[Rfam]
Nucleotides: 236
Base pairs, nucleotide, nucleotide: 011034012033013032014031018029019028020027021204023202024201037086038085039084041082042081043080044079045077046076047072048071049070050069051068052067053066054065055064056063057062123230124228126227127226128225129224130223131222147221148220149219150218151217152216153179154178155177158173159172160171184215185214186213188211189210190209191208193206194205
Number, partner (000 for none) and nucleotide at each position: 001000g002000g003000a004000a005000g006000c007000c008000c009000a010000u011034c012033g013032g014031g015000u016000a017000a018029g019028g020027u021204u022000a023202a024201c025000c026000a027020g028019c029018c030000g031014u032013c033012c034011g035000u036000a037086g038085u039084c040000a041082g042081c043080c044079u045077u046076g047072g048071a049070g050069c051068g052067c053066a054065g055064c056063a057062g058000g059000u060000a061000a062057c063056u064055g065054c066053u067052g068051c069050g070049u071048u072047u073000a074000a075000g076046c077045g078000u079044a080043g081042g082041c083000a084039g085038a086037c087000a088000a089000g090000a091000u092000a093000g094000u095000a096000g097000g098000c099000c100000g101000a102000a103000a104000g105000c106000c107000g108000g109000a110000a111000g112000g113000u114000u115000g116000a117000a118000g119000u120000g121000a122000u123230u124228g125000a126227g127226c128225c129224u130223c131222g132000a133000a134000a135000u136000a137000c138000u139000u140000a141000a142000g143000a144000a145000a146000c147221a148220g149219g150218a151217a152216g153179g154178c155177u156000g157000a158173u159172g160171c161000c162000g163000u164000u165000g166000c167000c168000u169000a170000u171160g172159c173158a174000g175000a176000a177155a178154g179153c180000a181000a182000c183000a184215u185214u186213g187000c188211g189210a190209c191208a192000a193206u194205c195000g196000c197000u198000a199000a200000g201024g202023u203000g204021a205194g206193a207000a208191u209190g210189u211188c212000a213186u214185a215184a216152c217151u218150u219149c220148c221147u222131c223130g224129g225128g226127g227126u228124c229000g230123a231000a232000g233000a234000a235000c236000u

Rfam assigns this 236-nucleotide RNA sequence from Anaerosolibacter carboniphilus to the family "Group II catalytic intron D1-D4-6".
A reference for the family is Bonen and Vogel (2001), "The ins and outs of group II introns", Trends Genet.
From the family's description: Group II introns are found in rRNA, tRNA and mRNA of organelles in fungi, plants and protists, and also in mRNA in bacteria.
It scores 151 bits against the family's covariance model.